[Rfam]
RNA sequence: GGGCUGGCUGUAGCUCAGCGCUCCUUCCCCAGGGCACUGUCCCCUUCCAUCCUCUGCGGUUGGCAGAGCCGACUGCAGACCUGUGGGUGCUCCCCAGUCCUUUA
Number, nucleotide and partner (000 for none) at each position: 001g000002g099003g098004c097005u096006g095007g094008c000009u000010g000011u000012a000013g088014c087015u086016c085017a000018g084019c083020g081021c000022u000023c000024c000025u078026u077027c000028c075029c000030c000031a000032g000033g000034g000035c000036a000037c000038u000039g000040u000041c000042c000043c000044c000045u000046u000047c000048c000049a000050u000051c000052c000053u000054c000055u000056g000057c000058g000059g000060u000061u000062g000063g000064c000065a000066g000067a000068g000069c000070c000071g000072a000073c000074u000075g028076c000077a026078g025079a000080c000081c020082u000083g019084u018085g016086g015087g014088u013089g000090c000091u000092c000093c000094c007095c006096a005097g004098u003099c002100c000101u000102u000103u000104a000